The record is a 218-nucleotide sequence from Polymorphobacter multimanifer, which matches "permuted transfer-messenger RNA" in Rfam.
Lineage of the source: Bacteria > Pseudomonadati > Sphingomonadales > Sphingosinicellaceae > Polymorphobacter.
Rfam classes the family as a non-coding RNA gene.
The base pairs follow the family's consensus structure, which is taken from published work.

RNA sequence: GGCAAUACAGGAUGGCGUGAAAUAGACGCAGCGGACCCGGGGGCAGUACCCGGCGGCUCCACCAUCAUUCCCCCCGGUUGUCGCGGGGAUGUCUGGGGCCGAACCAGGAUCGACGUGUGUUCAAAGACGAUCAUCUUUGCCCGGCCUGAAUGCGCCGUUAAACCGUUCAAAACACCAUAAAUGCCAACGACAACGAGGCAUUCGCAAUCGCAGCGUAA
Numbered sequence: 001g002g003c004a005a006u007a008c009a010g011g012a013u014g015g016c017g018u019g020a021a022a023u024a025g026a027c028g029c030a031g032c033g034g035a036c037c038c039g040g041g042g043g044c045a046g047u048a049c050c051c052g053g054c055g056g057c058u059c060c061a062c063c064a065u066c067a068u069u070c071c072c073c074c075c076g077g078u079u080g081u082c083g084c085g086g087g088g089a090u091g092u093c094u095g096g097g098g099c100c101g102a103a104c105c106a107g108g109a110u111c112g113a114c115g116u117g118u119g120u121u122c123a124a125a126g127a128c129g130a131u132c133a134u135c136u137u138u139g140c141c142c143g144g145c146c147u148g149a150a151u152g153c154g155c156c157g158u159u160a161a162a163c164c165g166u167u168c169a170a171a172a173c174a175c176c177a178u179a180a181a182u183g184c185c186a187a188c189g190a191c192a193a194c195g196a197g198g199c200a201u202u203c204g205c206a207a208u209c210g211c212a213g214c215g216u217a218a
Base pairs, nucleotide, nucleotide: 001141002140003139004138005137016129017128018127027119028118029117031116032115033114037053038052039051040050041049054101055100056099057098058097059096060095142157143156144155145154